[Rfam]
RNA: atpB RNA
RNA sequence: CUGUCUUGUUCAUGCUGAUGUGCGACGGAGUCCGUGAACAGGACAGAAAGUUUGAGACGUCCAUCGCACCACAAAAGCUUUUACAAGCUGUGUGGCCCGAACACGGGAGAGAACGCUGAGCGUUACAAC
Numbered sequence: 001c002u003g004u005c006u007u008g009u010u011c012a013u014g015c016u017g018a019u020g021u022g023c024g025a026c027g028g029a030g031u032c033c034g035u036g037a038a039c040a041g042g043a044c045a046g047a048a049a050g051u052u053u054g055a056g057a058c059g060u061c062c063a064u065c066g067c068a069c070c071a072c073a074a075a076a077g078c079u080u081u082u083a084c085a086a087g088c089u090g091u092g093u094g095g096c097c098c099g100a101a102c103a104c105g106g107g108a109g110a111g112a113a114c115g116c117u118g119a120g121c122g123u124u125a126c127a128a129c
Stems, first nucleotide, its partner, number of pairs: 001046012069095005076089005